[Rfam]
RNA sequence: UGUAUCACUGAUGAUAAUUUGGCUCCCUCUACUGAAUUCCCCUGAGGAGAAUGCCACUGUUACCCAAUUUCUGUCUGAGAUGUG
Numbered sequence: 001u002g003u004a005u006c007a008c009u010g011a012u013g014a015u016a017a018u019u020u021g022g023c024u025c026c027c028u029c030u031a032c033u034g035a036a037u038u039c040c041c042c043u044g045a046g047g048a049g050a051a052u053g054c055c056a057c058u059g060u061u062a063c064c065c066a067a068u069u070u071c072u073g074u075c076u077g078a079g080a081u082g083u084g
Base pairs, nucleotide, nucleotide: 001084002083003082004081005080006079
The record is an 84-nucleotide sequence from Labrus bergylta, which matches "Small nucleolar RNA SNORD100" in Rfam. Rfam classes the family as a C/D-box small nucleolar RNA. Pairs were carried over by alignment from the consensus structure, which was predicted with RNAalifold. Its family is annotated with nucleolus and RNA processing in the Gene Ontology. The literature on the family includes a 2002 paper in Mol Cell Biol by Galardi et al., "Purified box C/D snoRNPs are able to reproduce site-specific 2'-O-methylation of target RNA in vitro". Taxonomically the source falls in Labrus (Eukaryota, Opisthokonta, Bilateria, Euteleostomi). The match comes from Rfam's covariance-model search (74 bits).